Record summary:
This 100-nucleotide RNA from Senegalia massiliensis belongs to the Rfam family "SAM riboswitch aptamer (S box leader)". From the family's description: The SAM riboswitch is found upstream of a number of genes which code for proteins involved in methionine or cysteine biosynthesis in Gram-positive bacteria. A search with the family's covariance model found it, with a score of 85 bits.
[Rfam]
RNA sequence: GCCUUAUCAAGAGUGGUGGAGGGAUAGGCCCUAUGAAACCCGGCAACCGGUGAAAAAUCGGUGCUAAAUCCUACAAAGCAAAAGCUUUGGAAGAUGAGGA
Numbered sequence: 001g002c003c004u005u006a007u008c009a010a011g012a013g014u015g016g017u018g019g020a021g022g023g024a025u026a027g028g029c030c031c032u033a034u035g036a037a038a039c040c041c042g043g044c045a046a047c048c049g050g051u052g053a054a055a056a057a058u059c060g061g062u063g064c065u066a067a068a069u070c071c072u073a074c075a076a077a078g079c080a081a082a083a084g085c086u087u088u089g090g091a092a093g094a095u096g097a098g099g100a
Base pairs, nucleotide, nucleotide: 002099003098004097005096006095007094008093013041015040016039017038021031022030023029025073026072027071028070042065043064044063045062047061048060049059050058051057069092074089075088076087077086078085079084
Dot-bracket structure: .(((((((....(.(((...(((.[[[[)))......))))((((.(((((.....)))))))))...(]]]]((((((....))))))..)))))))).